[Rfam]
RNA sequence: GCCGCCAUUUUGCGCAUGCGCGGUUUACUUCCGCGUUCCACUGCGUUCCAAUGCUCCGUUUUCACUUCCGCGAAAGUGAAAACGGAGCAUUGGAACGCAGUGGAACGCGGAAGUAAACCGCGCAUGCGCAAAAUGGCGGCGC
Numbered sequence: 001g002c003c004g005c006c007a008u009u010u011u012g013c014g015c016a017u018g019c020g021c022g023g024u025u026u027a028c029u030u031c032c033g034c035g036u037u038c039c040a041c042u043g044c045g046u047u048c049c050a051a052u053g054c055u056c057c058g059u060u061u062u063c064a065c066u067u068c069c070g071c072g073a074a075a076g077u078g079a080a081a082a083c084g085g086a087g088c089a090u091u092g093g094a095a096c097g098c099a100g101u102g103g104a105a106c107g108c109g110g111a112a113g114u115a116a117a118c119c120g121c122g123c124a125u126g127c128g129c130a131a132a133a134u135g136g137c138g139g140c141g142c
Stems, first nucleotide, its partner, number of pairs: 001140067

A member of the RNA family "MIR3440 microRNA precursor family" from Leptobrachium leishanense, 142 nucleotides long.